[Rfam]
Nucleotides: 217
Stems, first nucleotide, its partner, number of pairs: 008027003012023004059078006080100006133170008148159001150157002173210006180202003184198001186197001
Number, partner (000 for none) and nucleotide at each position: 001000a002000u003000a004000c005000c006000u007000u008027u009026c010025u011000g012023g013022g014021c015020c016000u017000u018000u019000u020015g021014g022013c023012u024000a025010a026009g027008a028000u029000c030000a031000a032000g033000u034000g035000c036000a037000c038000u039000g040000u041000a042000u043000c044000u045000g046000u047000u048000c049000u050000g051000a052000a053000u054000c055000u056000u057000g058000u059078g060077a061076u062075c063074a064073g065000u066000u067000u068000a069000a070000u071000a072000u073064c074063u075062g076061a077060u078059u079000u080100g081099u082098g083097g084096u085095c086000c087000a088000u089000c090000c091000a092000u093000c094000c095085g096084a097083c098082c099081a100080c101000a102000c103000g104000a105000u106000g107000u108000a109000a110000a111000a112000u113000u114000g115000u116000u117000u118000u119000u120000u121000c122000u123000u124000g125000g126000c127000c128000a129000c130000g131000g132000a133170g134169g135168g136167g137166g138165g139164u140163c141000a142000u143000a144000c145000g146000g147000g148159u149000a150157a151156g152000c153000u154000u155000g156151c157150u158000a159148a160000c161000u162000c163140g164139a165138c166137c167136c168135c169134u170133c171000c172000a173210g174209u175208g176207u177206u178205g179000c180202c181201u182200c183000a184198u185000g186197u187000a188000u189000u190000g191000c192000a193000c194000u195000g196000u197186g198184g199000g200182g201181a202180g203000a204000g205178c206177g207176g208175u209174g210173c211000a212000g213000c214000c215000c216000u217000u